Rfam assigns this 106-nucleotide RNA from Antrodiella citrinella to the family "Small nucleolar RNA Z13/snr52". The base pairs follow the family's consensus structure, which was predicted with PFOLD. Rfam classes the family as a C/D-box small nucleolar RNA.
RNA sequence: GCUAUCUCGAUGAUGAAACCACCUUCGGAUGUUAUGAGCGUAGCUCGACUUUCCGAGAGCGCAAAACCGUGUGGAUGUCUCCGUUGCCUUCCUUCUGACUCUCUUC
Numbered sequence: 001g002c003u004a005u006c007u008c009g010a011u012g013a014u015g016a017a018a019c020c021a022c023c024u025u026c027g028g029a030u031g032u033u034a035u036g037a038g039c040g041u042a043g044c045u046c047g048a049c050u051u052u053c054c055g056a057g058a059g060c061g062c063a064a065a066a067c068c069g070u071g072u073g074g075a076u077g078u079c080u081c082c083g084u085u086g087c088c089u090u091c092c093u094u095c096u097g098a099c100u101c102u103c104u105u106c
Stems, first nucleotide, its partner, number of pairs: 004104001026083004